[Rfam]
Background: The record is a 77-nucleotide RNA sequence from Thauera chlorobenzoica, which matches "putative aminoglycoside riboswitch / attI site" in Rfam. Rfam 15.1 lists 39 matches to the family in 38 species. It is one of the family's seed sequences. Rfam describes the family as follows. Conserved RNA structure found upstream of the bacterial aminoglycosides antibiotic-resistant genes: aminoglycoside acetyl transferase (AAC) and aminoglycoside adenyl transferase (AAD). It has putative short open reading frame (ORF) that encode leader peptide upstream of the resistance gene. 75 nucleotide long sequence from the first ribosome binding site (SD1) up to the coding sequence was shown to have the regulatory role, and it was considered the minima functional RNA. Aminoglycosides bind to specific regions of AAC/AAD 5' leader and induce change in the RNA structure. The drug binding induces expression of the resistance protein. The leader RNA is widely distributed among antibiotic-resistant bacterial pathogens. Gene Ontology terms of the family: aminoglycoside antibiotic metabolic process and regulation of gene expression. Lineage of the source: Bacteria > Pseudomonadota > Rhodocyclales > Zoogloeaceae > Thauera.
RNA sequence: GGAGCAGCAACGAUGUUACGCAGCAGGGCAGUCGCCCUAAAACAAAGUUAGCCGAGAGGAGAAACUAUGUCUGCAAA
Numbered sequence: 001g002g003a004g005c006a007g008c009a010a011c012g013a014u015g016u017u018a019c020g021c022a023g024c025a026g027g028g029c030a031g032u033c034g035c036c037c038u039a040a041a042a043c044a045a046a047g048u049u050a051g052c053c054g055a056g057a058g059g060a061g062a063a064a065c066u067a068u069g070u071c072u073g074c075a076a077a
Stems, first nucleotide, its partner, number of pairs: 004074001006017001008015002021054001023052002026037004038050003058071001060066002
Dot-bracket structure: ...(.(.((....)).)...(.((.((((....))))(((.......))))).)...(.((...))....)..)...